[Rfam]
RNA sequence: GCUGAAAAAAGGCAAACCCGUACGAAAGUCGGGGACGCAAAGCCACGGGUCUACUCCUGUUGAACAGGAAUGACAGCCGGGCUGCUCGA
Numbered sequence: 001g002c003u004g005a006a007a008a009a010a011g012g013c014a015a016a017c018c019c020g021u022a023c024g025a026a027a028g029u030c031g032g033g034g035a036c037g038c039a040a041a042g043c044c045a046c047g048g049g050u051c052u053a054c055u056c057c058u059g060u061u062g063a064a065c066a067g068g069a070a071u072g073a074c075a076g077c078c079g080g081g082c083u084g085c086u087c088g089a
Stems, first nucleotide, its partner, number of pairs: 012038002017033004022029002041083004046079003049074003056068004
The record is an 89-nucleotide RNA from Paenibacillus methanolicus, which matches "c-di-GMP-I riboswitch aptamer" in Rfam. NCBI's taxonomy places the organism under Bacteria, Bacillati, Bacillota, Bacilli, Paenibacillus. Pairs were carried over by alignment from the consensus structure, which is taken from published work. Rfam's curators write: GEMM was predicted in a large-scale screen for bacterial structured RNA regulatory elements. Genes associated with GEMM are involved in a diverse array of functions, including chemotaxis regulation, signal transduction, secretion and chitin. Rfam links the family to the GO term cyclic-di-GMP binding. The match comes from Rfam's covariance-model search (76 bits).